[Rfam]
RNA sequence: GUUGGUUUGGAAGUACAAACCUAUUUAUGCAAGGCAAGUUAAAGCAGUUCACCAUUAAGUGUUAUCCAAGAUACCUUCAUUGCGAAUUCCUUCUAAUUUAGUUCCCAUAAGUACGUACGAAAGAAAACUAACUAUACCGCCAUAUGGCAACUUAAAAAAUUAAAAGGAUAUAACAUGUCUAAUACAAUGACUGGUACUGUAAAAUGGUUUAACAAUGAUAAAGGUUUCGGCUUUAUCUCUCCAAAAGAUGGCAGCAAAGAUGUAUUCGUACAUUUCUCUGCAAUUCAAAGUAAUAGCUUCAAAAGCCUGAACGAAGGACAAGAAGUGUCUUUCACUAUCGAAAAUGGCGCUAAAGGCCCAGCUGCAGCUAACGUUGUAGCGCUUUAAUUAAAGCCUAAAGAUAGAUAAAUUCAGUAAAAUGAAUUCCCAAGACCUCGCCCAUGCGGGGUCUUUUGCU
Numbered sequence: 001g002u003u004g005g006u007u008u009g010g011a012a013g014u015a016c017a018a019a020c021c022u023a024u025u026u027a028u029g030c031a032a033g034g035c036a037a038g039u040u041a042a043a044g045c046a047g048u049u050c051a052c053c054a055u056u057a058a059g060u061g062u063u064a065u066c067c068a069a070g071a072u073a074c075c076u077u078c079a080u081u082g083c084g085a086a087u088u089c090c091u092u093c094u095a096a097u098u099u100a101g102u103u104c105c106c107a108u109a110a111g112u113a114c115g116u117a118c119g120a121a122a123g124a125a126a127a128c129u130a131a132c133u134a135u136a137c138c139g140c141c142a143u144a145u146g147g148c149a150a151c152u153u154a155a156a157a158a159a160u161u162a163a164a165a166g167g168a169u170a171u172a173a174c175a176u177g178u179c180u181a182a183u184a185c186a187a188u189g190a191c192u193g194g195u196a197c198u199g200u201a202a203a204a205u206g207g208u209u210u211a212a213c214a215a216u217g218a219u220a221a222a223g224g225u226u227u228c229g230g231c232u233u234u235a236u237c238u239c240u241c242c243a244a245a246a247g248a249u250g251g252c253a254g255c256a257a258a259g260a261u262g263u264a265u266u267c268g269u270a271c272a273u274u275u276c277u278c279u280g281c282a283a284u285u286c287a288a289a290g291u292a293a294u295a296g297c298u299u300c301a302a303a304a305g306c307c308u309g310a311a312c313g314a315a316g317g318a319c320a321a322g323a324a325g326u327g328u329c330u331u332u333c334a335c336u337a338u339c340g341a342a343a344a345u346g347g348c349g350c351u352a353a354a355g356g357c358c359c360a361g362c363u364g365c366a367g368c369u370a371a372c373g374u375u376g377u378a379g380c381g382c383u384u385u386a387a388u389u390a391a392a393g394c395c396u397a398a399a400g401a402u403a404g405a406u407a408a409a410u411u412c413a414g415u416a417a418a419a420u421g422a423a424u425u426c427c428c429a430a431g432a433c434c435u436c437g438c439c440c441a442u443g444c445g446g447g448g449u450c451u452u453u454u455g456c457u
Base pairs, nucleotide, nucleotide: 004021005020006019007018008017009016028243029242032240033239034238042234043233046232047231048230050229052224053223055221061219062218063217064216070210071209073208074207075206078177079176080175082174089167090166091165092164094162095161101128102127103126139148140147141146179194180193181192183190247339248338249337250336251335259267260266270328271327272326273325274324275323277322279320280319281317284311285310286309287308294303345360346359347358349357350356351355361385364382365379367377368376388422389421390420429452430451431450432449433448434447435446436445437444438443
cspA thermoregulator: a 457-nucleotide RNA from Providencia sneebia. A search with the family's covariance model found it, with a score of 236 bits. The family's RNA type in Rfam is RNA thermoregulator. For this family Rfam cites "The cspA mRNA is a thermosensor that modulates translation of the cold-shock protein CspA" (Giuliodori et al., Mol Cell, 2010). Gene Ontology terms of the family: response to temperature stimulus and regulation of translation. Pairs were carried over by alignment from the consensus structure, which is taken from published work.